[Rfam]
RNA sequence: UCCUAACAACAAACUUUUUUUCAUUUACUCUCAUGAGUAAAACUCCUUUCUCAUCUUCUAAUUGAAGGUGAGAUUUUUU
Numbered sequence: 001u002c003c004u005a006a007c008a009a010c011a012a013a014c015u016u017u018u019u020u021u022c023a024u025u026u027a028c029u030c031u032c033a034u035g036a037g038u039a040a041a042a043c044u045c046c047u048u049u050c051u052c053a054u055c056u057u058c059u060a061a062u063u064g065a066a067g068g069u070g071a072g073a074u075u076u077u078u079u
Stems, first nucleotide, its partner, number of pairs: 025040006051071008